[Rfam]
DUF805 RNA: a 70-nucleotide sequence from Tenacibaculum sp. Bg11-29. It is annotated as a cis-regulatory element.

RNA sequence: ACAAAGUAGAGUUCAGAAACUACUAUAAAAAACUAGGCGAAAUCUGAAAAGCCUCAUGAGUAAGAAAAAU
Number, nucleotide and partner (000 for none) at each position: 001a000002c000003a000004a000005a000006g023007u022008a021009g020010a000011g000012u000013u000014c000015a000016g000017a000018a000019a000020c009021u008022a007023c006024u000025a000026u000027a000028a000029a000030a000031a000032a000033c000034u000035a000036g053037g052038c051039g000040a000041a000042a000043u064044c000045u000046g000047a000048a000049a000050a000051g038052c037053c036054u000055c000056a000057u000058g000059a000060g000061u000062a000063a000064g043065a000066a000067a000068a000069a000070u000
Notes: The base pairs follow the family's consensus structure, which is taken from published work. Clan: DUF805 clan.